[Rfam]
About this RNA
Shown here is a 313-nucleotide RNA from Bursaphelenchus okinawaensis, a member of the family "Nuclear RNase P". Lineage of the source: Eukaryota > Bilateria > Protostomia > Aphelenchoididae > Bursaphelenchus. A search with the family's covariance model found it, with a score of 89 bits.
RNA sequence: UUGGUUGUCAGGCGGCUAAAGGGAGAAUCGAAACGCACUCUAAUGUGCGAGAAUGCAAUCCCGGGAAGGUCUGAGAAAGGCGUCCGGUGCAGUUCCCAUCUGCACCGUUUCCUCGUGAAGGGGACCGUCCCCGCGGACGGUGUACUGUACUAGAAAUUGCCCACGCCGGCUUUAAUCAGGGACAAGAAGCUACAGUAUUCGUACUGUAGUGGAUCCCAUCGAAGCUCUAGGCGAGCGUGUUCGGAUCACAGUGCAGAUGCAGCGCUUUGAGUGCGAUCGCCGCGAAACCCAAUUCAGACUACUCGAUGGCCAA
Dot-bracket structure: ((((..(((.....[.[...((((.........(((((......))))).........))))........(((((.....((((.........................(((((.....)))))((((((....))))))(((((((..............(((((....................................................................))))).........)))))))))))...................].]...........))))).......)))..))))